[Rfam]
RNA sequence: AGGACUUAUGCACGGUGGAUGGUUAUGUCAGCAUGAGCGGACAUUCUGGCAUCUGACGGGACAACAGAUAUGAGCAUGUAGGGCGAUAGCCCGGAAUGCGAAUAUCUGUCAGCGGUAUGAAAGCUGCGCCAGCAGCGAAAUACCGCGUAAGGACU
Numbered sequence: 001a002g003g004a005c006u007u008a009u010g011c012a013c014g015g016u017g018g019a020u021g022g023u024u025a026u027g028u029c030a031g032c033a034u035g036a037g038c039g040g041a042c043a044u045u046c047u048g049g050c051a052u053c054u055g056a057c058g059g060g061a062c063a064a065c066a067g068a069u070a071u072g073a074g075c076a077u078g079u080a081g082g083g084c085g086a087u088a089g090c091c092c093g094g095a096a097u098g099c100g101a102a103u104a105u106c107u108g109u110c111a112g113c114g115g116u117a118u119g120a121a122a123g124c125u126g127c128g129c130c131a132g133c134a135g136c137g138a139a140a141u142a143c144c145g146c147g148u149a150a151g152g153a154c155u
Stems, first nucleotide, its partner, number of pairs: 002057001008052004012047001014045004020039002023036005064109008074099004081092004112146007123136004

Clostridiales-1 RNA: a 155-nucleotide sequence from Oribacterium sp. oral taxon 078.
The organism belongs to Oribacterium sp. oral taxon 078, within Bacteria.
A search with the family's covariance model found it, with a score of 65 bits.